The family of this 168-nucleotide sequence from Slackia exigua is "Lysine riboswitch aptamer". Lineage of the source: Bacteria > Actinomycetota > Coriobacteriia > Slackia > Slackia exigua. It scores 59 bits against the family's covariance model. Pairs were carried over by alignment from the consensus structure, which is taken from published work.
Nucleotides: 168
Stems, first nucleotide, its partner, number of pairs: 007162005016076006024068001030062007080107004085102002088099004108134002112130004117125002136153006
Number, partner (000 for none) and nucleotide at each position: 001000u002000c003000c004000u005000a006000c007162g008161a009160u010159a011158g012000a013000g014000g015000c016076g017075c018074g019073a020072a021071c022000a023000a024068g025000a026000g027000g028000g029000c030062g031061c032060u033059c034058g035057g036056u037000c038000g039000a040000g041000c042000c043000g044000g045000c046000g047000g048000g049000c050000c051000a052000c053000g054000a055000c056036a057035c058034c059033g060032a061031g062030c063000a064000a065000g066000g067000g068024c069000g070000c071021g072020u073019u074018c075017g076016c077000c078000g079000a080107a081106c082105c083104g084000g085102c086101g087000g088099g089098c090097c091096a092000g093000g094000c095000a096091u097090g098089g099088c100000a101086c102085g103000a104083c105082g106081g107080u108134g109133g110000g111000a112130c113129g114128u115127c116000g117125g118124g119000g120000g121000a122000u123000a124118c125117c126000g127115g128114a129113c130112g131000g132000a133109c134108u135000g136153u137152c138151u139150g140149c141148g142000c143000g144000a145000g146000a147000u148141c149140g150139c151138a152137g153136g154000g155000g156000u157000g158011c159010u160009a161008u162007c163000u164000g165000c166000c167000c168000a